Rfam assigns this 98-nucleotide RNA from Lawsonibacter faecis to the family "Purine riboswitch aptamer". Pairs were carried over by alignment from the consensus structure, which is taken from published work. Gene Ontology term of the family: purine nucleobase biosynthetic process. The source organism's lineage runs through Bacteria, Bacillati, Eubacteriales, Oscillospiraceae and Lawsonibacter.

RNA sequence: ACAAGUGAAGAGCGACAGACUUAUAUAGGCCCAUAAUUGGUUGGGCGUCUCUACCAGCUACCGGAAAUAGCUGCGCUAUAAGUCUCUGAGAGCAAGAU
Numbered sequence: 001a002c003a004a005g006u007g008a009a010g011a012g013c014g015a016c017a018g019a020c021u022u023a024u025a026u027a028g029g030c031c032c033a034u035a036a037u038u039g040g041u042u043g044g045g046c047g048u049c050u051c052u053a054c055c056a057g058c059u060a061c062c063g064g065a066a067a068u069a070g071c072u073g074c075g076c077u078a079u080a081a082g083u084c085u086c087u088g089a090g091a092g093c094a095a096g097a098u
Stems, first nucleotide, its partner, number of pairs: 018084008029046005055073006